[Rfam]
RNA sequence: AGCUUAUCAAGAAAGACGGAGGGAAAUGGCCCGUAGAAGUCUUAGCAACCGCCACUAUUGGAAACGGUGCUACAUCCAUCUGCCAGCAGGCGGAAAGAUAAGUG
Numbered sequence: 001a002g003c004u005u006a007u008c009a010a011g012a013a014a015g016a017c018g019g020a021g022g023g024a025a026a027u028g029g030c031c032c033g034u035a036g037a038a039g040u041c042u043u044a045g046c047a048a049c050c051g052c053c054a055c056u057a058u059u060g061g062a063a064a065c066g067g068u069g070c071u072a073c074a075u076c077c078a079u080c081u082g083c084c085a086g087c088a089g090g091c092g093g094a095a096a097g098a099u100a101a102g103u104g
Stems, first nucleotide, its partner, number of pairs: 002103007013043005021032003026079004044071004049067002053061001075096001080093005

Background: This 104-nucleotide sequence from Niabella soli belongs to the Rfam family "SAM riboswitch aptamer (S box leader)". The match comes from Rfam's covariance-model search (77 bits).